[Rfam]
RNA sequence: ACAAACCUGGUGCUGGUCCGGUGCAAGAAGUCCUGCCGAGCGUUGCGCACCUUGCGAUGAGCACGAGCGACCUUGGUUUUCGCCUUGCGGCGAUUACUGCUGCCGCGCAGGCAACGUGCCAACCUCCGCUGAUAGCGAGCCAGAUUCUGCGCCUUGCGGACCAGGUGCCGCGGAUUCGCGAUCCGCUCCCCUUGACUGGUCACCGCGAAAUCCGCCAAACCGAGGUCGACGGCGAUGUCCUGGCUCGUGGGCUCAGCCGGAGUGGGAGCAUCGGUGUCGACAGCAAACGUCACGUACCAGCGACCGUCCGCCUCACGAGAGACCACAACGGUUGUCGGAUCCAGCCUCUCGAGAUCCCUGUCAUCGAACGACCACACGAACCGCAGCGGCGUCCUGGUCUUGGCCAGUACCAGCGACCCGUCACGCAGCCUGAACGCCGAUCGCGUGUAGUGCGCGCUUUGACGACCCGUGCGGGACUUGAACCUGGGGUAGCGAGAGCGUCCAGCGAAGAAGUUCCGAAAGGCGGUGUGUUGGUGUCGCAGUGUCUGCUGCAACGGCACCGAGGACACCUCAGACAAGAACGCGAAUUGCUCGG
Numbered sequence: 001a002c003a004a005a006c007c008u009g010g011u012g013c014u015g016g017u018c019c020g021g022u023g024c025a026a027g028a029a030g031u032c033c034u035g036c037c038g039a040g041c042g043u044u045g046c047g048c049a050c051c052u053u054g055c056g057a058u059g060a061g062c063a064c065g066a067g068c069g070a071c072c073u074u075g076g077u078u079u080u081c082g083c084c085u086u087g088c089g090g091c092g093a094u095u096a097c098u099g100c101u102g103c104c105g106c107g108c109a110g111g112c113a114a115c116g117u118g119c120c121a122a123c124c125u126c127c128g129c130u131g132a133u134a135g136c137g138a139g140c141c142a143g144a145u146u147c148u149g150c151g152c153c154u155u156g157c158g159g160a161c162c163a164g165g166u167g168c169c170g171c172g173g174a175u176u177c178g179c180g181a182u183c184c185g186c187u188c189c190c191c192u193u194g195a196c197u198g199g200u201c202a203c204c205g206c207g208a209a210a211u212c213c214g215c216c217a218a219a220c221c222g223a224g225g226u227c228g229a230c231g232g233c234g235a236u237g238u239c240c241u242g243g244c245u246c247g248u249g250g251g252c253u254c255a256g257c258c259g260g261a262g263u264g265g266g267a268g269c270a271u272c273g274g275u276g277u278c279g280a281c282a283g284c285a286a287a288c289g290u291c292a293c294g295u296a297c298c299a300g301c302g303a304c305c306g307u308c309c310g311c312c313u314c315a316c317g318a319g320a321g322a323c324c325a326c327a328a329c330g331g332u333u334g335u336c337g338g339a340u341c342c343a344g345c346c347u348c349u350c351g352a353g354a355u356c357c358c359u360g361u362c363a364u365c366g367a368a369c370g371a372c373c374a375c376a377c378g379a380a381c382c383g384c385a386g387c388g389g390c391g392u393c394c395u396g397g398u399c400u401u402g403g404c405c406a407g408u409a410c411c412a413g414c415g416a417c418c419c420g421u422c423a424c425g426c427a428g429c430c431u432g433a434a435c436g437c438c439g440a441u442c443g444c445g446u447g448u449a450g451u452g453c454g455c456g457c458u459u460u461g462a463c464g465a466c467c468c469g470u471g472c473g474g475g476a477c478u479u480g481a482a483c484c485u486g487g488g489g490u491a492g493c494g495a496g497a498g499c500g501u502c503c504a505g506c507g508a509a510g511a512a513g514u515u516c517c518g519a520a521a522g523g524c525g526g527u528g529u530g531u532u533g534g535u536g537u538c539g540c541a542g543u544g545u546c547u548g549c550u551g552c553a554a555c556g557g558c559a560c561c562g563a564g565g566a567c568a569c570c571u572c573a574g575a576c577a578a579g580a581a582c583g584c585g586a587a588u589u590g591c592u593c594g595g
Stems, first nucleotide, its partner, number of pairs: 002016001004014001017580002021576002023033001025031001040068002043065001045062002048059002051056001069146002072143002075140001077138002082133001084131001087129004092124001095121001097118001100116001101113003149213001151211001154208005159201004164196001166195001170193001172191002178188001180186001220574001223571004230268001233265001235263001238261003242258004269565001271563008281551005287545004295536008303527006310348001319341002323337001325335002356471001358469001360467001361465002364462004372456001373454001375452003380446002383444002386442001391437002395433001396431002399428002403424001407419001472518008487503004492499002582594002585591001
Shown here is a 595-nucleotide RNA sequence from Lentzea albidocapillata, a member of the family "Saccharopolyspora sRNA 389".
Taxonomically the source falls in Lentzea (Bacteria, Actinomycetota, Pseudonocardiales, Pseudonocardiaceae).
Gene Ontology term of the family: regulation of secondary metabolite biosynthetic process.